[Rfam]
Nucleotides: 080
Stems, first nucleotide, its partner, number of pairs: 002079002004076005014066009025057007033049003
Number, partner (000 for none) and nucleotide at each position: 001000a002079g003078g004076c005075u006074g007073c008072a009000a010000u011000a012000a013000a014066c015065a016064u017063u018062c019061a020060u021059u022058g023000c024000u025057g026056u027055c028054g029053g030052u031051g032000g033049g034048u035047u036000u037000g038000a039000a040000c041000a042000g043000c044000a045000u046000u047035a048034a049033c050000u051031c052030a053029c054028u055027g056026a057025u058022c059021a060020a061019u062018g063017a064016a065015u066014g067000c068000a069000g070000a071000c072008u073007g074006c075005g076004g077000u078003u079002c080000a
mir-181 microRNA precursor family: an 80-nucleotide RNA from Austrofundulus limnaeus. Rfam 15.1 lists 3,490 matches to the family in 650 species. The family's consensus secondary structure was predicted with PFOLD. The match comes from Rfam's covariance-model search (69 bits). Its family is annotated with RISC complex and miRNA-mediated post-transcriptional gene silencing in the Gene Ontology.